About this RNA: Rfam assigns this 65-nucleotide RNA sequence from Medicago truncatula to the family "MIR5291 microRNA precursor family". Its family is annotated with miRNA-mediated post-transcriptional gene silencing and RISC complex in the Gene Ontology.
[Rfam]
RNA sequence: GAUGGAUUAAAUCCAAUCCAUUAACUUUUGUUUUUGUUUGGUGGAUGGAUUGGAUGUAUAUGGAU
Numbered sequence: 001g002a003u004g005g006a007u008u009a010a011a012u013c014c015a016a017u018c019c020a021u022u023a024a025c026u027u028u029u030g031u032u033u034u035u036g037u038u039u040g041g042u043g044g045a046u047g048g049a050u051u052g053g054a055u056g057u058a059u060a061u062g063g064a065u
Base pairs, nucleotide, nucleotide: 004061006059007058011055012054013053014052015051016050017049018048019047020046021045022044025040029036
The base pairs follow the family's consensus structure, which was predicted with RNAalifold.